[Rfam]
RNA sequence: GUCGGUCUUCGGUAGUGGCUUUUCGGCACGACUGCCCGGAAGGCUUCGAUCGAUGACCGCC
Number, nucleotide and partner (000 for none) at each position: 001g061002u000003c059004g058005g057006u056007c055008u000009u053010c052011g051012g050013u049014a000015g000016u000017g045018g044019c043020u000021u041022u040023u039024c038025g037026g036027c034028a000029c000030g000031a000032c000033u000034g027035c000036c026037c025038g024039g023040a022041a021042g000043g019044c018045u017046u000047c000048g000049a013050u012051c011052g010053a009054u000055g007056a006057c005058c004059g003060c000061c001
This 61-nucleotide RNA from Nocardia mexicana belongs to the Rfam family "Actino-pnp RNA". A search with the family's covariance model found it, with a score of 55 bits. Lineage of the source: Bacteria > Bacillati > Actinomycetota > Actinomycetes > Nocardia. Rfam classes the family as a cis-regulatory element. The base pairs follow the family's consensus structure, which is taken from published work.